[Rfam]
RNA sequence: UUGCACUGUGUAUCAGAGGCUUCCCCAAAUAUUCGUGAAGAAUAGGAACUCAUGGGGUAGCCUUUGAGCGUAAGUGCAGAAAUGGAAAGCUGAGGAGUCAGCGGCGGCCAGACAACCGCUGAGAUGGAUCCACAGAUGAGCGCUCUGUCUAUUGUGCUCGUCUACUAAUUCCAUCUCACAUUU
Numbered sequence: 001u002u003g004c005a006c007u008g009u010g011u012a013u014c015a016g017a018g019g020c021u022u023c024c025c026c027a028a029a030u031a032u033u034c035g036u037g038a039a040g041a042a043u044a045g046g047a048a049c050u051c052a053u054g055g056g057g058u059a060g061c062c063u064u065u066g067a068g069c070g071u072a073a074g075u076g077c078a079g080a081a082a083u084g085g086a087a088a089g090c091u092g093a094g095g096a097g098u099c100a101g102c103g104g105c106g107g108c109c110a111g112a113c114a115a116c117c118g119c120u121g122a123g124a125u126g127g128a129u130c131c132a133c134a135g136a137u138g139a140g141c142g143c144u145c146u147g148u149c150u151a152u153u154g155u156g157c158u159c160g161u162c163u164a165c166u167a168a169u170u171c172c173a174u175c176u177c178a179c180a181u182u183u
Stems, first nucleotide, its partner, number of pairs: 002078005009070003013067009023057005121177008138159006
Notes: The family of this 183-nucleotide sequence from Handroanthus impetiginosus is "small nucleolar RNA snoR143". A reference for the family is Chen and Wu (2009), "Mining small RNA sequencing data: a new approach to identify small nucleolar RNAs in Arabidopsis", Nucleic Acids Res. NCBI's taxonomy places the organism under Eukaryota, Embryophyta, lamiids, Lamiales, Handroanthus. Rfam 15.1 lists 660 matches to the family in 212 species. By type it is an H/ACA-box small nucleolar RNA. The family's consensus secondary structure was predicted with RNAalifold. A search with the family's covariance model found it, with a score of 124 bits.